RNA sequence: CAUAGAGGAACUUCUACGAAGACCGUCCACGUCCUGUGGACAACGUAGAAGUCAGCACAUCCUGUGCA
Numbered sequence: 001c002a003u004a005g006a007g008g009a010a011c012u013u014c015u016a017c018g019a020a021g022a023c024c025g026u027c028c029a030c031g032u033c034c035u036g037u038g039g040a041c042a043a044c045g046u047a048g049a050a051g052u053c054a055g056c057a058c059a060u061c062c063u064g065u066g067c068a
Base pairs, nucleotide, nucleotide: 011051012050013049014048015047016046017045026040027039028038029037030036055067056066057065058064
Rfam assigns this 68-nucleotide sequence from Virgibacillus necropolis to the family "Bacillaceae-1 RNA". NCBI's taxonomy places the organism under Bacteria, Bacilli, Caryophanales, Bacillaceae, Virgibacillus. It is annotated as a small RNA.